[Rfam]
This 163-nucleotide sequence from Streptomyces xinghaiensis belongs to the Rfam family "c-di-AMP riboswitch aptamer (ydaO/yuaA leader)". The match comes from Rfam's covariance-model search (40 bits). Lineage of the source: Bacteria > Bacillati > Actinomycetota > Kitasatosporales > Streptomyces.
RNA sequence: ACAGGUCGAUUCCCUGGACCGGCAGGAGUGGAGGACCCGGGCAAGCCGGGCCCGGCCGGAACCCUCCGGCCGGCCCUUGGGGUGAAGCCGCAACCGCGGCCGGGCAUCUUCGUUCUGCCCGAACCCGACAGGUCAUCCUUCACAGGCGGCUGACGAAGGGUUG
Numbered sequence: 001a002c003a004g005g006u007c008g009a010u011u012c013c014c015u016g017g018a019c020c021g022g023c024a025g026g027a028g029u030g031g032a033g034g035a036c037c038c039g040g041g042c043a044a045g046c047c048g049g050g051c052c053c054g055g056c057c058g059g060a061a062c063c064c065u066c067c068g069g070c071c072g073g074c075c076c077u078u079g080g081g082g083u084g085a086a087g088c089c090g091c092a093a094c095c096g097c098g099g100c101c102g103g104g105c106a107u108c109u110u111c112g113u114u115c116u117g118c119c120c121g122a123a124c125c126c127g128a129c130a131g132g133u134c135a136u137c138c139u140u141c142a143c144a145g146g147c148g149g150c151u152g153a154c155g156a157a158g159g160g161u162u163g
Stems, first nucleotide, its partner, number of pairs: 005147003011027003028143006038079004080126003088099004102120004
Dot-bracket structure: ....(((...(((...........)))((((((....((((..................................))))(((.....((((....))))..((((...........))))...)))...........)))))).)))................